Nucleotides: 344
Base pairs, nucleotide, nucleotide: 005018006017007016008015009014020122021120022119023118024117025116026115030113031110032109033108034107035106036105037104038103039102045096046094047093051090052089053088056085057084058083062079063078064076065075066074067073126151127150128149129148130147131146132145134143135142156167157166158165171344172343173342174341176340177339178338182334183333184332191331193330194329195328196327197326198325210305211304214302215301216300217299218298219297220296221295222294223293231289232288233287234286235285237262238261239260242256243255244254263267268283272281273280
Number, partner (000 for none) and nucleotide at each position: 001000g002000a003000a004000a005018u006017a007016g008015c009014u010000u011000u012000a013000g014009g015008g016007c017006u018005a019000g020122c021120c022119u023118c024117a025116g026115g027000g028000u029000a030113g031110g032109a033108c034107c035106u036105a037104u038103g039102g040000a041000g042000g043000u044000a045096g046094a047093g048000c049000a050000c051090u052089g053088a054000a055000u056085g057084g058083g059000c060000u061000a062079g063078g064076g065075g066074c067073c068000a069000a070000g071000g072000a073067g074066g075065u076064u077000a078063c079062c080000g081000a082000a083058c084057c085056c086000u087000a088053u089052c090051a091000a092000a093047c094046u095000c096045c097000g098000a099000a100000u101000g102039c103038c104037a105036u106035a107034g108033g109032u110031u111000a112000a113030u114000a115026c116025c117024u118023g119022g120021g121000a122020g123000u124000c125000a126151g127150a128149c129148u130147a131146c132145g133000a134143g135142u136000g137000a138000u139000a140000a141000g142135a143134u144000c145132c146131g147130u148129a149128g150127u151126c152000g153000a154000g155000a156167g157166g158165g159000g160000a161000a162000c163000a164000g165158c166157c167156c168000a169000g170000a171344c172343c173342u174341c175000c176340a177339g178338c179000u180000a181000a182334g183333g184332u185000c186000c187000c188000a189000a190000a191331g192000g193330g194329c195328a196327u197326g198325u199000u200000a201000a202000g203000u204000g205000g206000u207000a208000a209000a210305g211304g212000a213000a214302g215301u216300g217299g218298g219297a220296c221295u222294u223293c224000g225000a226000a227000g228000a229000c230000a231289a232288c233287c234286a235285g236000g237262a238261u239260g240000u241000u242256g243255g244254c245000u246000u247000a248000g249000a250000a251000g252000c253000a254244g255243c256242c257000a258000u259000a260239c261238a262237u263267u264000u265000a266000a267263a268283g269000a270000g271000u272281g273280c274000g275000u276000a277000a278000c279000a280273g281272c282000u283268c284000a285235c286234u287233g288232g289231u290000c291000g292000a293223g294222a295221g296220g297219u298218c299217c300216u301215g302214c303000g304211c305210c306000g307000a308000a309000a310000a311000u312000g313000a314000a315000c316000g317000g318000g319000g320000c321000u322000c323000a324000a325198a326197c327196a328195u329194g330193c331191c332184a333183c334182c335000g336000a337000a338178g339177c340176u341174g342173g343172g344171g
Rfam assigns this 344-nucleotide part of an RNA from Thermoanaerobacter sp. X513 to the family "Bacterial large subunit ribosomal RNA". The sequence is in the family's curated seed alignment. Lineage of the source: Bacteria > Bacillati > Bacillota > Thermoanaerobacterales > Thermoanaerobacter.